Group II catalytic intron D1-D4-1: an 89-nucleotide RNA from Arthrobacter pigmenti.
Group II introns are found in rRNA, tRNA and mRNA of organelles in fungi, plants and protists, and also in mRNA in bacteria.

RNA sequence: CGACAUUGCUUUAAGGGCUGUGUUGAUGGGGCAGAAGUCAGCCGAGGCCAUAGUACCGGCGGGAAUCAGUGAUGGUUGCUGGGAAGGGC
Numbered sequence: 001c002g003a004c005a006u007u008g009c010u011u012u013a014a015g016g017g018c019u020g021u022g023u024u025g026a027u028g029g030g031g032c033a034g035a036a037g038u039c040a041g042c043c044g045a046g047g048c049c050a051u052a053g054u055a056c057c058g059g060c061g062g063g064a065a066u067c068a069g070u071g072a073u074g075g076u077u078g079c080u081g082g083g084a085a086g087g088g089c
Base pairs, nucleotide, nucleotide: 001025002024004022005021006020008018009017010016011015038045039044047089048088049087056082057081058080059079060078061077
The match comes from Rfam's covariance-model search (57 bits).